Notes:
The family of this 159-nucleotide sequence from Acetoanaerobium sticklandii is "Lysine riboswitch aptamer". From the family's description: Riboswitches are metabolite binding domains within certain messenger RNAs that serve as precision sensors for their corresponding targets. Allosteric rearrangement of mRNA structure is mediated by ligand binding, and this results in modulation of gene expression. This family includes riboswitches that sense lysine in a number of genes involved in lysine metabolism, including lysC. The source organism's lineage runs through Bacteria, Bacillota, Clostridia, Acetoanaerobium and Acetoanaerobium sticklandii.
[Rfam]
RNA sequence: AUACUUUAAAGAGGCUGCGGUUAGCUAAGAGUACUUUAAUUAGGAAAGGGGCAACCGCCGAAGCAUAAGCUAGAAAUAGCUGUGCUGGGACUAUGUUUAAUAGACAUAGUACUGUUAUUAUGAGAUUGCCCAAUCUCAUAAUAUUGCGCUUUAUAGUGU
Numbered sequence: 001a002u003a004c005u006u007u008a009a010a011g012a013g014g015c016u017g018c019g020g021u022u023a024g025c026u027a028a029g030a031g032u033a034c035u036u037u038a039a040u041u042a043g044g045a046a047a048g049g050g051g052c053a054a055c056c057g058c059c060g061a062a063g064c065a066u067a068a069g070c071u072a073g074a075a076a077u078a079g080c081u082g083u084g085c086u087g088g089g090a091c092u093a094u095g096u097u098u099a100a101u102a103g104a105c106a107u108a109g110u111a112c113u114g115u116u117a118u119u120a121u122g123a124g125a126u127u128g129c130c131c132a133a134u135c136u137c138a139u140a141a142u143a144u145u146g147c148g149c150u151u152u153a154u155a156g157u158g159u
Stems, first nucleotide, its partner, number of pairs: 007153005017058006024052003034043002062086005068081005087113002090110008116143010